RNA sequence: UAUGUUUAUGUGCUCCGAAACUGGAAACCUAAAGUUAGCUAUGGUUUACCAGUCGUGCAUUCUGCACCGGGUAUUAUUGGAAACAGUAAUGCCUCCCAUUUGGAAAGGAGUCUGUAGGGUAUGCGGG
Numbered sequence: 001u002a003u004g005u006u007u008a009u010g011u012g013c014u015c016c017g018a019a020a021c022u023g024g025a026a027a028c029c030u031a032a033a034g035u036u037a038g039c040u041a042u043g044g045u046u047u048a049c050c051a052g053u054c055g056u057g058c059a060u061u062c063u064g065c066a067c068c069g070g071g072u073a074u075u076a077u078u079g080g081a082a083a084c085a086g087u088a089a090u091g092c093c094u095c096c097c098a099u100u101u102g103g104a105a106a107g108g109a110g111u112c113u114g115u116a117g118g119g120u121a122u123g124c125g126g127g
Stems, first nucleotide, its partner, number of pairs: 003121002006118001012112001013110004020053005025047005033040002055067005069094011095103002